RNA sequence: CAUCCAUCAAGACCGGCUGAGGGACAGGCCCGUUGACGCCGGGGCAGCCUUCCGCGAGGCAACUCGCGGAAAAGGUGCCAAGUCCUGCGGCGGCCCUCGGGCCAGCCGGAAGAUGGAGC
Number, nucleotide and partner (000 for none) at each position: 001c000002a000003u117004c116005c115006a114007u113008c112009a000010a000011g000012a000013c042014c041015g040016g039017c038018u000019g000020a000021g031022g030023g029024a000025c087026a086027g085028g084029c023030c022031c021032g000033u000034u000035g000036a000037c000038g017039c016040c015041g014042g013043g079044g078045c077046a076047g000048c075049c074050u071051u070052c069053c068054g067055c066056g065057a000058g000059g000060c000061a000062a000063c000064u000065c056066g055067c054068g053069g052070a051071a050072a000073a000074g049075g048076u046077g045078c044079c043080a000081a000082g000083u111084c028085c027086u026087g025088c108089g107090g106091c105092g000093g103094c000095c000096c000097u000098c000099g000100g000101g000102c000103c093104a000105g091106c090107c089108g088109g000110a000111a083112g008113a007114u006115g005116g004117a003118g000119c000

Shown here is a 119-nucleotide sequence from Barrientosiimonas humi, a member of the family "SAM riboswitch aptamer (S box leader)". The match comes from Rfam's covariance-model search (77 bits).